abiF RNA: a 36-nucleotide sequence from Streptomyces zagrosensis. It scores 37 bits against the family's covariance model. Taxonomically the source falls in Streptomyces (Bacteria, Bacillati, Actinomycetes, Kitasatosporales). Actinobacteria, Bacteroidetes, Clostridia, Proteobacteria, one Clostridia phage.

RNA sequence: CCUCCCAAGCCUCCCCAGGAUGCUCAAAUGGGAGGG
Numbered sequence: 001c002c003u004c005c006c007a008a009g010c011c012u013c014c015c016c017a018g019g020a021u022g023c024u025c026a027a028a029u030g031g032g033a034g035g036g
Stems, first nucleotide, its partner, number of pairs: 001035006008024003
Dot-bracket structure: ((((((.(((...........))).....)))))).